[Rfam]
RNA sequence: AUAGGAAUGUAAGAAAGUACUUGUAUAAUCGUUGAGAUAAGGUCAACAAGUUUCUACCUCACGCCGUUGUUUGUGAGACUACAAGGAAUGAAGUUUGUAUA
Numbered sequence: 001a002u003a004g005g006a007a008u009g010u011a012a013g014a015a016a017g018u019a020c021u022u023g024u025a026u027a028a029u030c031g032u033u034g035a036g037a038u039a040a041g042g043u044c045a046a047c048a049a050g051u052u053u054c055u056a057c058c059u060c061a062c063g064c065c066g067u068u069g070u071u072u073g074u075g076a077g078a079c080u081a082c083a084a085g086g087a088a089u090g091a092a093g094u095u096u097g098u099a100u101a
Base pairs, nucleotide, nucleotide: 018087020085021084022083023082024081025080029049031047032046033045034044035043058077059076060075061074062073063072
A member of the RNA family "Purine riboswitch aptamer" from Erysipelotrichaceae bacterium MTC7, 101 nucleotides long. The source organism's lineage runs through Bacteria, Bacillati, Bacillota, Erysipelotrichia and Erysipelotrichaceae.